This 65-nucleotide RNA sequence belongs to the Rfam family "pemK RNA". It is annotated as a cis-regulatory element.

RNA sequence: AUAAUGAUACAUCUAUUAGUUGAAGUCGGCUCAUCUAAAAAGAGGCGAAGGUGAAAUUCCUAUGU
Numbered sequence: 001a002u003a004a005u006g007a008u009a010c011a012u013c014u015a016u017u018a019g020u021u022g023a024a025g026u027c028g029g030c031u032c033a034u035c036u037a038a039a040a041a042g043a044g045g046c047g048a049a050g051g052u053g054a055a056a057u058u059c060c061u062a063u064g065u
Stems, first nucleotide, its partner, number of pairs: 012062001013025002016022001026048003030044003049061003